[Rfam]
RNA: c-di-GMP-I riboswitch aptamer
Organism: Metabacillus harenarius
RNA sequence: UCAGUUCAAAGGCAAACCUAUUGAAAGAUAGGGACGCAAAGUCACAGAUCUACAGUGGUUCUAUACACACUAAGAUGGCUGGGCUGCCUGG
Numbered sequence: 001u002c003a004g005u006u007c008a009a010a011g012g013c014a015a016a017c018c019u020a021u022u023g024a025a026a027g028a029u030a031g032g033g034a035c036g037c038a039a040a041g042u043c044a045c046a047g048a049u050c051u052a053c054a055g056u057g058g059u060u061c062u063a064u065a066c067a068c069a070c071u072a073a074g075a076u077g078g079c080u081g082g083g084c085u086g087c088c089u090g091g
Base pairs, nucleotide, nucleotide: 012037013036017032018031019030020029021028022027040085041084042083043082045081046080047079048076049075050074055070056069057068